[Rfam]
RNA sequence: AAUCAUUCGGGGAAUGAAUGUCUCCCCUGGCUUGCCUAAACCGCUAUCAUUAGCUGAUGACUUCUGCCUGGCA
Numbered sequence: 001a002a003u004c005a006u007u008c009g010g011g012g013a014a015u016g017a018a019u020g021u022c023u024c025c026c027c028u029g030g031c032u033u034g035c036c037u038a039a040a041c042c043g044c045u046a047u048c049a050u051u052a053g054c055u056g057a058u059g060a061c062u063u064c065u066g067c068c069u070g071g072c073a
Base pairs, nucleotide, nucleotide: 010026011025012024013023016064017063018062020061021060022059043054044053045052046051